[Rfam]
RNA: small nucleolar RNA snoR135
RNA sequence: UCCGCGGGGAUUGUGUGUAUCGGUGUUGUGCUGCGAUCAAUGCACUCUUCCGAAAGAGUUCCCUGCAACAUUCAUUCUUCUGAGAAAAUGGGCAGUUGUGUUUCAUAUUUUCUCGUUCGAAAUCACAACAAUCAUUUUCCCUACAUUU
Numbered sequence: 001u002c003c004g005c006g007g008g009g010a011u012u013g014u015g016u017g018u019a020u021c022g023g024u025g026u027u028g029u030g031c032u033g034c035g036a037u038c039a040a041u042g043c044a045c046u047c048u049u050c051c052g053a054a055a056g057a058g059u060u061c062c063c064u065g066c067a068a069c070a071u072u073c074a075u076u077c078u079u080c081u082g083a084g085a086a087a088a089u090g091g092g093c094a095g096u097u098g099u100g101u102u103u104c105a106u107a108u109u110u111u112c113u114c115g116u117u118c119g120a121a122a123u124c125a126c127a128a129c130a131a132u133c134a135u136u137u138u139c140c141c142u143a144c145a146u147u148u
Stems, first nucleotide, its partner, number of pairs: 004066007015045006082141001084139008095129004